Annotation:
Rfam assigns this 132-nucleotide RNA from Pseudofrankia inefficax to the family "FMN riboswitch aptamer (RFN element)". Taxonomically the source falls in Pseudofrankia (Bacteria, Actinomycetota, Actinomycetes, Frankiales). The RFN element is a highly conserved domain that is found frequently in the 5'-untranslated regions of prokaryotic mRNAs that encode for flavin mononucleotide (FMN) biosynthesis and transport proteins.
RNA sequence: ACGCGCGCUCCGGGGUCGGUGAAAUUCCGAGCCGGCGGUAACAGUCCGCGACCCGUCCCACCGUUGGUGGGCGGUGGACCUGGUGGAAUUCCGGGACCGACGGUGAAAGUCCGGAUGGGAGGCAGCGCGCGG
Numbered sequence: 001a002c003g004c005g006c007g008c009u010c011c012g013g014g015g016u017c018g019g020u021g022a023a024a025u026u027c028c029g030a031g032c033c034g035g036c037g038g039u040a041a042c043a044g045u046c047c048g049c050g051a052c053c054c055g056u057c058c059c060a061c062c063g064u065u066g067g068u069g070g071g072c073g074g075u076g077g078a079c080c081u082g083g084u085g086g087a088a089u090u091c092c093g094g095g096a097c098c099g100a101c102g103g104u105g106a107a108a109g110u111c112c113g114g115a116u117g118g119g120a121g122g123c124a125g126c127g128c129g130c131g132g
Stems, first nucleotide, its partner, number of pairs: 003130007010121001017029003031110002033099002035049004044097002053074002079095005101113003